This 60-nucleotide sequence from Momordica charantia belongs to the Rfam family "Plastid-psbN 5UTR RNA". Taxonomically the source falls in Momordica (Eukaryota, Spermatophyta, Magnoliopsida, Mesangiospermae). Rfam's curators write: Plastid psbN is a non-coding RNA (ncRNA) recognised in plastids. Rfam classes the family as a cis-regulatory element.
[Rfam]
RNA sequence: CGCGACACUCAUCAAAGGCGUAGUUCCCACCUAGGAGCCACUUUACCAUAUUCUGAACUC
Numbered sequence: 001c002g003c004g005a006c007a008c009u010c011a012u013c014a015a016a017g018g019c020g021u022a023g024u025u026c027c028c029a030c031c032u033a034g035g036a037g038c039c040a041c042u043u044u045a046c047c048a049u050a051u052u053c054u055g056a057a058c059u060c
Base pairs, nucleotide, nucleotide: 017044018043020041021040023038024037025036026035027034